Source information
A member of the RNA family "c-di-AMP riboswitch aptamer (ydaO/yuaA leader)" from Gordonia rhizosphera, 177 nucleotides long.
[Rfam]
RNA sequence: ACGUACCUGGAACGAGAUCUGGGAGCGAGGACGGGGGACCCACUCUCCCGGCAGAGAUCGGGCGUCACGACGACGUCCUUGGGGUUAAGUCCCGGCCGAUCACGGAUCGCGUCGGGGCCGGGCAGCCUCUCGCCCGAACCCGACAGCUGACUUCGUAGGCGCGUGGAGAGAGGAAGC
Numbered sequence: 001a002c003g004u005a006c007c008u009g010g011a012a013c014g015a016g017a018u019c020u021g022g023g024a025g026c027g028a029g030g031a032c033g034g035g036g037g038a039c040c041c042a043c044u045c046u047c048c049c050g051g052c053a054g055a056g057a058u059c060g061g062g063c064g065u066c067a068c069g070a071c072g073a074c075g076u077c078c079u080u081g082g083g084g085u086u087a088a089g090u091c092c093c094g095g096c097c098g099a100u101c102a103c104g105g106a107u108c109g110c111g112u113c114g115g116g117g118c119c120g121g122g123c124a125g126c127c128u129c130u131c132g133c134c135c136g137a138a139c140c141c142g143a144c145a146g147c148u149g150a151c152u153u154c155g156u157a158g159g160c161g162c163g164u165g166g167a168g169a170g171a172g173g174a175a176g177c
Stems, first nucleotide, its partner, number of pairs: 002158001006030003031156006041081002082141003090117007120135004

Taxonomically the source falls in Gordonia rhizosphera (Bacteria, Mycobacteriales, Gordoniaceae, Gordonia).